[Rfam]
RNA: SAM (S-adenosyl methionine) riboswitch aptamer
Organism: Cellulomonas sp. PhB150
RNA sequence: GGUCACGAGCACCAGUGCCAAGCCCCGGCUCGCUGGUCAGCAACCCCCCUCACCGGGGUGCUCCGGGAGAUGACCUGGCCCCGUGGACGUCACGGGGCAAGCGUGAGAG
Numbered sequence: 001g002g003u004c005a006c007g008a009g010c011a012c013c014a015g016u017g018c019c020a021a022g023c024c025c026c027g028g029c030u031c032g033c034u035g036g037u038c039a040g041c042a043a044c045c046c047c048c049c050u051c052a053c054c055g056g057g058g059u060g061c062u063c064c065g066g067g068a069g070a071u072g073a074c075c076u077g078g079c080c081c082c083g084u085g086g087a088c089g090u091c092a093c094g095g096g097g098c099a100a101g102c103g104u105g106a107g108a109g
Stems, first nucleotide, its partner, number of pairs: 001075004009038001011037006021030002039062003044058003078098009